[Rfam]
RNA: SAM riboswitch aptamer (S box leader)
Organism: Rhodothermus marinus
RNA sequence: AGCUCAUCCAGAAGGGUGGAGGGACCAGGCCCUGUGAAGCCCUGGCAACCGCCCCGUUGAUCGUCGGGAGACGACGUGGGGAAAGGUGCCAAUUCCUGCCUCGCACGACCGCGAGGGGAGAUGAGCU
Numbered sequence: 001a002g003c004u005c006a007u008c009c010a011g012a013a014g015g016g017u018g019g020a021g022g023g024a025c026c027a028g029g030c031c032c033u034g035u036g037a038a039g040c041c042c043u044g045g046c047a048a049c050c051g052c053c054c055c056g057u058u059g060a061u062c063g064u065c066g067g068g069a070g071a072c073g074a075c076g077u078g079g080g081g082a083a084a085g086g087u088g089c090c091a092a093u094u095c096c097u098g099c100c101u102c103g104c105a106c107g108a109c110c111g112c113g114a115g116g117g118g119a120g121a122u123g124a125g126c127u
Stems, first nucleotide, its partner, number of pairs: 001127008013043005021032003026098004044090004049086002052081006094119001099116006